[Rfam]
RNA sequence: GCCCAUUCCGAGGGGUGUUCGCUGACGCGAGCUGAGAUGGCCUGGGGCCGAACCCUUCUAACCUGAUCCGGUUCAUGCCGGCGGAGGGACGGGAAAUGGCGCCGCA
Numbered sequence: 001g002c003c004c005a006u007u008c009c010g011a012g013g014g015g016u017g018u019u020c021g022c023u024g025a026c027g028c029g030a031g032c033u034g035a036g037a038u039g040g041c042c043u044g045g046g047g048c049c050g051a052a053c054c055c056u057u058c059u060a061a062c063c064u065g066a067u068c069c070g071g072u073u074c075a076u077g078c079c080g081g082c083g084g085a086g087g088g089a090c091g092g093g094a095a096a097u098g099g100c101g102c103c104g105c106a
Stems, first nucleotide, its partner, number of pairs: 006094005011056004016050001017032005039049004062087003068081004
RNA: TPP riboswitch aptamer (THI element)